Record summary
The family of this 87-nucleotide sequence from Myotis lucifugus is "mir-9195 microRNA precursor family". Rfam 15.1 lists 438 matches to the family in 7 species. Rfam links the family to the GO terms RISC complex and miRNA-mediated post-transcriptional gene silencing. Pairs were carried over by alignment from the consensus structure, which was predicted with RNAalifold. The match comes from Rfam's covariance-model search (96 bits).
RNA sequence: AGAGGCCCUCCGUGGCUGGGGUGGAACGCUUGCCUCGUCACCACGGUAAUGAAGCAAGCAUUCCGCCAGGUCGCUCACGCUGCCUGC
Numbered sequence: 001a002g003a004g005g006c007c008c009u010c011c012g013u014g015g016c017u018g019g020g021g022u023g024g025a026a027c028g029c030u031u032g033c034c035u036c037g038u039c040a041c042c043a044c045g046g047u048a049a050u051g052a053a054g055c056a057a058g059c060a061u062u063c064c065g066c067c068a069g070g071u072c073g074c075u076c077a078c079g080c081u082g083c084c085u086g087c
Base pairs, nucleotide, nucleotide: 004084005083006082012074013073014072015071016070017069020067021066022065023064024063025062026061028059029058030057031056032055033054037050038049040047041046
Dot-bracket structure: ...(((.....((((((..(((((((.((((((...((.((....)).))...)))))).))))))).)))))).......)))...